[Rfam]
RNA: 6S / SsrS RNA
Organism: Flavonifractor sp. An10
RNA sequence: AUUUUCCUGCUCGGUGCGUGACGGGCUCUAUUUAAACCCACAUCUCUCAAACGGGAUGCCAGAACUCACGGCGUGAACCGCAGGCCUCCCGGCCCCCCUCCGAGGUGCGGCUGGAAGUUGGAAGCGACGAAGCGCCGUGGAGGCAACCCACCUGCCAUUUUGUGCAGGUUUUAAGUGGGCUCGCACGGCCAGAGCGGGGCCCCC
Number, nucleotide and partner (000 for none) at each position: 001a000002u000003u000004u000005u199006c198007c197008u196009g195010c194011u193012c000013g190014g189015u188016g000017c187018g186019u185020g000021a000022c000023g000024g000025g000026c000027u000028c000029u000030a000031u175032u174033u173034a171035a170036a169037c168038c167039c000040a000041c000042a000043u000044c000045u000046c000047u000048c000049a000050a000051a000052c000053g149054g148055g147056a000057u145058g144059c143060c142061a000062g000063a000064a000065c000066u000067c000068a138069c137070g136071g135072c134073g133074u132075g000076a000077a000078c000079c000080g125081c124082a000083g000084g000085c121086c120087u000088c000089c117090c000091g000092g000093c000094c000095c000096c000097c000098c000099u000100c000101c000102g000103a000104g000105g000106u000107g000108c000109g000110g000111c000112u000113g000114g000115a000116a000117g089118u000119u000120g086121g085122a000123a000124g081125c080126g000127a000128c000129g000130a000131a000132g074133c073134g072135c071136c070137g069138u068139g000140g000141a000142g060143g059144c058145a057146a000147c055148c054149c053150a000151c000152c000153u000154g000155c000156c000157a000158u000159u000160u000161u000162g000163u000164g000165c000166a000167g038168g037169u036170u035171u034172u000173a033174a032175g031176u000177g000178g000179g000180c000181u000182c000183g000184c000185a019186c018187g017188g015189c014190c013191a000192g000193a011194g010195c009196g008197g007198g006199g005200c000201c000202c000203c000204c000